[Rfam]
RNA sequence: GUCAACUACCCCGCCCUGAAGGGCGGAGCUUGCAAGGCGGUACGCAGGCUGGGUUGACCAGGGGGCCGGAGUAAUCCGGCAGACGUGGGAUACAGGUCGGUAAGACGCACCCUGGAAUGCUUCCUCAGUUCCAGGCUCUGCAAGGCAGGCAUCAUGCUGGGCAAAGGUAAAGGCCCGAAGGUGUCCGCCGCGUGUGUAACAGCACGGAGCCGGUAUCACACAGCCCCGAGGGGAUAUAGGC
Numbered sequence: 001g002u003c004a005a006c007u008a009c010c011c012c013g014c015c016c017u018g019a020a021g022g023g024c025g026g027a028g029c030u031u032g033c034a035a036g037g038c039g040g041u042a043c044g045c046a047g048g049c050u051g052g053g054u055u056g057a058c059c060a061g062g063g064g065g066c067c068g069g070a071g072u073a074a075u076c077c078g079g080c081a082g083a084c085g086u087g088g089g090a091u092a093c094a095g096g097u098c099g100g101u102a103a104g105a106c107g108c109a110c111c112c113u114g115g116a117a118u119g120c121u122u123c124c125u126c127a128g129u130u131c132c133a134g135g136c137u138c139u140g141c142a143a144g145g146c147a148g149g150c151a152u153c154a155u156g157c158u159g160g161g162c163a164a165a166g167g168u169a170a171a172g173g174c175c176c177g178a179a180g181g182u183g184u185c186c187g188c189c190g191c192g193u194g195u196g197u198a199a200c201a202g203c204a205c206g207g208a209g210c211c212g213g214u215a216u217c218a219c220a221c222a223g224c225c226c227c228g229a230g231g232g233g234a235u236a237u238a239g240g241c
Base pairs, nucleotide, nucleotide: 001058002057003056004055005054006053007052010028012025013024015022016021029048030047031046032045061227062226063225064224066079067078068077069076070075085221086220087219089217090216091215092214093213095211107141108140111135112134113133114132115131116130117129118128119237122234123233124232125231126230144189145188146187148185149184150183151182152181153180158177159176160175161174162173
This 241-nucleotide sequence from Acidithiobacillus marinus belongs to the Rfam family "HNH endonuclease-associated RNA and ORF (HEARO) RNA". The family has 139 seed sequences and 952 matches in Rfam 15.1. It scores 95 bits against the family's covariance model. The literature on the family includes a 2009 paper in Nature by Weinberg et al., "Exceptional structured noncoding RNAs revealed by bacterial metagenome analysis".